[Rfam]
RNA sequence: GCUUGUGGUAGUUUCUUUCUGGCACAUUUGUUAAGUUUUCAAAUGGGCCUGACUCUGCCACAGACAUAGUAAGGAGCUGGCAAAGGCUUAAAGACAGAAAGAUCUCUCUUAAGCUUUUUGUGCAUCAGAUACUGCUCUCACAAUC
Numbered sequence: 001g002c003u004u005g006u007g008g009u010a011g012u013u014u015c016u017u018u019c020u021g022g023c024a025c026a027u028u029u030g031u032u033a034a035g036u037u038u039u040c041a042a043a044u045g046g047g048c049c050u051g052a053c054u055c056u057g058c059c060a061c062a063g064a065c066a067u068a069g070u071a072a073g074g075a076g077c078u079g080g081c082a083a084a085g086g087c088u089u090a091a092a093g094a095c096a097g098a099a100a101g102a103u104c105u106c107u108c109u110u111a112a113g114c115u116u117u118u119u120g121u122g123c124a125u126c127a128g129a130u131a132c133u134g135c136u137c138u139c140a141c142a143a144u145c
Base pairs, nucleotide, nucleotide: 005061006060007059008058009057010056011055021049022048023047025045026044027043028042029041030040073138074137075136076135077134079088080087081086105131107129108128109127
The family of this 145-nucleotide RNA from Chinchilla lanigera is "Small nucleolar RNA SNORA12".
Rfam links the family to the GO terms RNA processing and nucleolus.
The literature on the family includes a 2005 paper in Nucleic Acids Res by Gu et al., "A novel experimental approach for systematic identification of box H/ACA snoRNAs from eukaryotes".
The family has 23 seed sequences and 571 matches in Rfam 15.1.
U108 belongs to the H/ACA family of snoRNAs. The sequence is predicted to guide the pseudouridylation of the U372 residue in the 28S rRNA subunit.
Taxonomically the source falls in Chinchilla (Eukaryota, Eumetazoa, Sarcopterygii, Dipnotetrapodomorpha).